[Rfam]
RNA sequence: UUGCAGAUAUGGAGAUAUGGUACCUGGAACAAUCGCAGGCAAAAUUGUUGGAGGUGUCUGCUCCUUGAGUGGUGUACUGGUGAUUGCUCUUCCUGUACCCGUCAUCGUCUCUAAC
Numbered sequence: 001u002u003g004c005a006g007a008u009a010u011g012g013a014g015a016u017a018u019g020g021u022a023c024c025u026g027g028a029a030c031a032a033u034c035g036c037a038g039g040c041a042a043a044a045u046u047g048u049u050g051g052a053g054g055u056g057u058c059u060g061c062u063c064c065u066u067g068a069g070u071g072g073u074g075u076a077c078u079g080g081u082g083a084u085u086g087c088u089c090u091u092c093c094u095g096u097a098c099c100c101g102u103c104a105u106c107g108u109c110u111c112u113a114a115c
Stems, first nucleotide, its partner, number of pairs: 001114001005112002009108004014103003019098001022096002038078002041075001050064003
RNA: Potassium channel RNA editing signal
Organism: Oryctes borbonicus